[Rfam]
RNA sequence: GAGGCAAGCGGUGAACGUCCGGCGGCGCGUCGCGCUCCCGGGCGCGGUUUAC
Numbered sequence: 001g002a003g004g005c006a007a008g009c010g011g012u013g014a015a016c017g018u019c020c021g022g023c024g025g026c027g028c029g030u031c032g033c034g035c036u037c038c039c040g041g042g043c044g045c046g047g048u049u050u051a052c
Stems, first nucleotide, its partner, number of pairs: 016044007025035004

Rfam assigns this 52-nucleotide sequence from Candidatus Methylaffinis lahnbergensis to the family "ffh sRNA". The base pairs follow the family's consensus structure, which is taken from published work. It scores 35 bits against the family's covariance model. Rfam classes the family as a small RNA. The literature on the family includes a 2009 paper in BMC Genomics by Meyer et al., "Identification of candidate structured RNAs in the marine organism 'Candidatus Pelagibacter ubique'".